[Rfam]
RNA sequence: UAUUCAGUGGGGCAGGUUAAGAUCGUGACGUCCUGUCGCAACACCGGCACUAGCACGUCCUGUGCG
Dot-bracket structure: ...........((.(((.......(((((.....)))))...))).))....((((.....)))).

Rfam assigns this 66-nucleotide sequence from Lentibacillus halodurans to the family "Bacillaceae-1 RNA". The family's consensus secondary structure is taken from published work. Lineage of the source: Bacteria > Bacillati > Bacillota > Bacillaceae > Lentibacillus. It is annotated as a small RNA.